RNA: mir-8517 microRNA precursor family
Organism: Plutella xylostella
RNA sequence: UUAGUGGACGCUUUAGCUAUUGAACUGUUUUGUUCGUCAAAGAACAAAUUGUUCUCUGUCAGAGAGUGACAGAACAUGUCAAUAGCUAAAGCAUCCAGUAAC
Numbered sequence: 001u002u003a004g005u006g007g008a009c010g011c012u013u014u015a016g017c018u019a020u021u022g023a024a025c026u027g028u029u030u031u032g033u034u035c036g037u038c039a040a041a042g043a044a045c046a047a048a049u050u051g052u053u054c055u056c057u058g059u060c061a062g063a064g065a066g067u068g069a070c071a072g073a074a075c076a077u078g079u080c081a082a083u084a085g086c087u088a089a090a091g092c093a094u095c096c097a098g099u100a101a102c
Stems, first nucleotide, its partner, number of pairs: 001101003005097002011091013026076003029063004034058001043053004